[Rfam]
RNA sequence: CUAAUAUGUUGGCCGAAUUUCAAUUGAAAACGGGGGAACCGAUCUUUAGGGGUGAAUUUCGCCGGCAGCAAGCGGACCGCUUGGUGCGAAAGGCGAAUAGGGCAGACCUAGCAAGCCCGAAUCCGUCAGCUAACCUCGUAGGCCUUUGCUGCAGGGACCA
Numbered sequence: 001c002u003a004a005u006a007u008g009u010u011g012g013c014c015g016a017a018u019u020u021c022a023a024u025u026g027a028a029a030a031c032g033g034g035g036g037a038a039c040c041g042a043u044c045u046u047u048a049g050g051g052g053u054g055a056a057u058u059u060c061g062c063c064g065g066c067a068g069c070a071a072g073c074g075g076a077c078c079g080c081u082u083g084g085u086g087c088g089a090a091a092g093g094c095g096a097a098u099a100g101g102g103c104a105g106a107c108c109u110a111g112c113a114a115g116c117c118c119g120a121a122u123c124c125g126u127c128a129g130c131u132a133a134c135c136u137c138g139u140a141g142g143c144c145u146u147u148g149c150u151g152c153a154g155g156g157a158c159c160a
Stems, first nucleotide, its partner, number of pairs: 011144004018029003030139006040049001050124003058097006100118004
RNA: c-di-AMP riboswitch aptamer (ydaO/yuaA leader)